[Rfam]
RNA sequence: AGCGACACCCAUCGAAGGAGUAGUUCCCCAUCAAGGUGCUACUUUACCACAUUCCGAAUUC
Numbered sequence: 001a002g003c004g005a006c007a008c009c010c011a012u013c014g015a016a017g018g019a020g021u022a023g024u025u026c027c028c029c030a031u032c033a034a035g036g037u038g039c040u041a042c043u044u045u046a047c048c049a050c051a052u053u054c055c056g057a058a059u060u061c
Stems, first nucleotide, its partner, number of pairs: 017045008026036002